[Rfam]
RNA sequence: UGGCCCAUUUUGGCACUAGCACAUUUUUGCUUUGUCUCCUGUUGUUGGAGCAAUCAUGUGUGGUGCCAAUAUAGGACG
Number, nucleotide and partner (000 for none) at each position: 001u000002g000003g000004c075005c074006c000007a072008u071009u000010u069011u068012g067013g066014c065015a064016c063017u062018a000019g061020c060021a059022c058023a057024u056025u000026u000027u053028u052029g051030c050031u049032u048033u000034g000035u000036c000037u000038c000039c000040u000041g000042u000043u000044g000045u000046u000047g000048g032049a031050g030051c029052a028053a027054u000055c000056a024057u023058g022059u021060g020061u019062g017063g016064u015065g014066c013067c012068a011069a010070u000071a008072u007073a000074g005075g004076a000077c000078g000

Rfam assigns this 78-nucleotide RNA from Echeneis naucrates to the family "mir-96 microRNA precursor family".
On this family, see Houbaviy et al., Dev Cell 2003: "Embryonic stem cell-specific MicroRNAs".
The organism belongs to Echeneis, within Eukaryota.
Its family is annotated with miRNA-mediated post-transcriptional gene silencing and RISC complex in the Gene Ontology.